RNA sequence: CCGCUUGUGGUUCGAAAACUUCCCACACUAAAAAACUAGGAAAAA
Numbered sequence: 001c002c003g004c005u006u007g008u009g010g011u012u013c014g015a016a017a018a019c020u021u022c023c024c025a026c027a028c029u030a031a032a033a034a035a036c037u038a039g040g041a042a043a044a045a
Base pairs, nucleotide, nucleotide: 006027007026008025009024010023016037

The family of this 45-nucleotide sequence from Dichelobacter nodosus is "PreQ1 (pre queuosine) riboswitch aptamer". Taxonomically the source falls in Dichelobacter nodosus (Bacteria, Pseudomonadati, Pseudomonadota, Cardiobacteriales). It is one of the family's seed sequences. From the family's description: This family is a bacterial riboswitch that binds to the metabolite preQ1, an intermediate in the biosynthesis of the modified nucleoside queuosine from GTP. One example of this riboswitch is located in the leader of the Bacillus subtilis ykvJKLM (queCDEF) operon which encodes four genes necessary for queuosine production. The family has 43 seed sequences and 873 matches in Rfam 15.1. Gene Ontology term of the family: queuosine biosynthetic process.